[Rfam]
RNA sequence: GGCUGGUCAGAAGGUAGUGAGUUAUCUCAAUUGAUUGUUCACAGUCAGUUACAGAUUGAACUCUUUAUUCUAUUCCUUCUCCUUUUCUCACUACUGUAUUUGACUAGUCUUUC
Numbered sequence: 001g002g003c004u005g006g007u008c009a010g011a012a013g014g015u016a017g018u019g020a021g022u023u024a025u026c027u028c029a030a031u032u033g034a035u036u037g038u039u040c041a042c043a044g045u046c047a048g049u050u051a052c053a054g055a056u057u058g059a060a061c062u063c064u065u066u067a068u069u070c071u072a073u074u075c076c077u078u079c080u081c082c083u084u085u086u087c088u089c090a091c092u093a094c095u096g097u098a099u100u101u102g103a104c105u106a107g108u109c110u111u112u113c
Stems, first nucleotide, its partner, number of pairs: 001109008010101002014097002016092006044074001047071002
Shown here is a 113-nucleotide sequence from Macaca mulatta, a member of the family "Y RNA". Lineage of the source: Eukaryota > Opisthokonta > Chordata > Haplorrhini > Macaca. Y RNAs are components of the Ro ribonucleoprotein particle (Ro RNP), in association with Ro60 and La proteins. The family's RNA type in Rfam is non-coding RNA gene. It scores 71 bits against the family's covariance model.